[Rfam]
RNA sequence: AAAAGCUAAGAACCGUCUUUUAACUUUUAACUAAAAAAGCUAAGAACCGUCUCUUAAAACUUUUAUUUAAGAGCCGGUUCUUACUUUUUUUAGUUAAAAGUUAAGAGUCAUGUUCUUAUAUUUC
Number, nucleotide and partner (000 for none) at each position: 001a000002a123003a122004a121005g000006c000007u118008a117009a116010g115011a114012a113013c112014c000015g109016u000017c107018u106019u105020u104021u103022a102023a101024c100025u099026u098027u097028u096029a095030a094031c093032u092033a091034a090035a089036a088037a087038a086039g000040c000041u083042a082043a081044g080045a079046a078047c000048c000049g000050u000051c000052u000053c000054u000055u000056a000057a000058a000059a000060c000061u000062u000063u000064u000065a000066u000067u000068u000069a000070a000071g000072a000073g000074c000075c000076g000077g000078u046079u045080c044081u043082u042083a041084c000085u000086u038087u037088u036089u035090u034091u033092a032093g031094u030095u029096a028097a027098a026099a025100g024101u023102u022103a021104a020105g019106a018107g017108u000109c015110a000111u000112g013113u012114u011115c010116u009117u008118a007119u000120a000121u004122u003123u002124c000